[Rfam]
RNA sequence: AGCUUAUUAAGAGCGGUGGAGGGACUGGCCCUAUGAAGCCCGGCAACCUGUAUAUGUGUUUGCAUAUUAUAAGGUGCUAAAUCCUGCGGUGUAAACCGAGAGAUGAGGA
Numbered sequence: 001a002g003c004u005u006a007u008u009a010a011g012a013g014c015g016g017u018g019g020a021g022g023g024a025c026u027g028g029c030c031c032u033a034u035g036a037a038g039c040c041c042g043g044c045a046a047c048c049u050g051u052a053u054a055u056g057u058g059u060u061u062g063c064a065u066a067u068u069a070u071a072a073g074g075u076g077c078u079a080a081a082u083c084c085u086g087c088g089g090u091g092u093a094a095a096c097c098g099a100g101a102g103a104u105g106a107g108g109a
Base pairs, nucleotide, nucleotide: 003107004106005105006104007103008102013041015040016039017038021031022030023029025086027084028083042078043077044076045075047074048073049071050070051069052068082101087098088097089096090095
Shown here is a 109-nucleotide RNA sequence from Clostridium tetani, a member of the family "SAM riboswitch aptamer (S box leader)". Taxonomically the source falls in Clostridium tetani (Bacteria, Bacillota, Clostridia, Clostridiaceae). The base pairs follow the family's consensus structure, which is taken from published work. Rfam's curators put it in the seed alignment.